[Rfam]
RNA sequence: AAUUCUGUUCUUAGGAACAAAGAGAAGAACAUUUAUUCUAUACUCGAUAAGUACUAAUACACAAUAGGG
Numbered sequence: 001a002a003u004u005c006u007g008u009u010c011u012u013a014g015g016a017a018c019a020a021a022g023a024g025a026a027g028a029a030c031a032u033u034u035a036u037u038c039u040a041u042a043c044u045c046g047a048u049a050a051g052u053a054c055u056a057a058u059a060c061a062c063a064a065u066a067g068g069g
Stems, first nucleotide, its partner, number of pairs: 003022002006019005043068002051060003
RNA: Plastid-clpP 5UTR RNA
Organism: Capsicum baccatum